Rfam assigns this 247-nucleotide RNA sequence from Halcyon senegalensis to the family "Small nucleolar RNA SNORD17".
It is annotated as a C/D-box small nucleolar RNA.

RNA sequence: GUGAGGUGAUGACAAAGUUUAUCCAUUCUCUGAGUGCAGUGGUGCUGCCCUCCUGCAGCACCCCAGUGCCUGUUCUAGGAUCUGGGUGCUGUGCAGCCUCCAGAGACCCUCCAGUCUCCCAGUGUCCUACUGGGGGCUGCUGUGGCAUGUGGCUGGCUUCCUGCAGGAGUGCAGUGGUGCUGACAGGGUUGGAGCCCCUCUUUGGGGGGCUCUGUCCUCACUGAGAUGAAGCAUGAUGUCUGAUCAC
Numbered sequence: 001g002u003g004a005g006g007u008g009a010u011g012a013c014a015a016a017g018u019u020u021a022u023c024c025a026u027u028c029u030c031u032g033a034g035u036g037c038a039g040u041g042g043u044g045c046u047g048c049c050c051u052c053c054u055g056c057a058g059c060a061c062c063c064c065a066g067u068g069c070c071u072g073u074u075c076u077a078g079g080a081u082c083u084g085g086g087u088g089c090u091g092u093g094c095a096g097c098c099u100c101c102a103g104a105g106a107c108c109c110u111c112c113a114g115u116c117u118c119c120c121a122g123u124g125u126c127c128u129a130c131u132g133g134g135g136g137c138u139g140c141u142g143u144g145g146c147a148u149g150u151g152g153c154u155g156g157c158u159u160c161c162u163g164c165a166g167g168a169g170u171g172c173a174g175u176g177g178u179g180c181u182g183a184c185a186g187g188g189u190u191g192g193a194g195c196c197c198c199u200c201u202u203u204g205g206g207g208g209g210c211u212c213u214g215u216c217c218u219c220a221c222u223g224a225g226a227u228g229a230a231g232c233a234u235g236a237u238g239u240c241u242g243a244u245c246a247c
Stems, first nucleotide, its partner, number of pairs: 010246003017239002020236001024231001026230003030225002034221002039184002042181001043179006049171001050169005056163002061088001063086002066082001069079003093160001095158004107145001112139005118134007186219002188216001190214004195209004

Lineage of the source: Eukaryota > Vertebrata > Archosauria > Aves > Halcyon. Its family is annotated with nucleolus and RNA processing in the Gene Ontology. A reference for the family is Huttenhofer et al. (2001), "RNomics: an experimental approach that identifies 201 candidates for novel, small, non-messenger RNAs in mouse", EMBO J.